[Rfam]
RNA sequence: UAAAACGAUAUUUGAUAUCGCGGGCCUUCACCAAGACCCCGUAGCCAGUUUUUGGGGGUCCCAUCCUCAUUUUUGUAGUUGGGAUA
Numbered sequence: 001u002a003a004a005a006c007g008a009u010a011u012u013u014g015a016u017a018u019c020g021c022g023g024g025c026c027u028u029c030a031c032c033a034a035g036a037c038c039c040c041g042u043a044g045c046c047a048g049u050u051u052u053u054g055g056g057g058g059u060c061c062c063a064u065c066c067u068c069a070u071u072u073u074u075g076u077a078g079u080u081g082g083g084a085u086a
Base pairs, nucleotide, nucleotide: 022039023038024037026035027034028033058085059084060083061082062081063080065078